[Rfam]
RNA sequence: CUCUGGGUCAUCGGAUUGAUUCAGGGCAAAGGAG
Numbered sequence: 001c002u003c004u005g006g007g008u009c010a011u012c013g014g015a016u017u018g019a020u021u022c023a024g025g026g027c028a029a030a031g032g033a034g
Stems, first nucleotide, its partner, number of pairs: 001026005010020003

A member of the RNA family "L31-Firmicutes ribosomal protein leader" from Lentilactobacillus buchneri, 34 nucleotides long. The literature on the family includes a 2020 paper in BMC Microbiol by Eckert and Weinberg, "Discovery of 20 novel ribosomal leader candidates in bacteria and archaea". The family is grouped with related families in Rfam's "Ribosomal Protein L31 Leader clan". The family's consensus secondary structure is taken from published work. The family's RNA type in Rfam is cis-regulatory leader. The source organism's lineage runs through Bacteria, Bacillota, Bacilli, Lentilactobacillus buchneri and Lentilactobacillus buchneri subsp. silagei.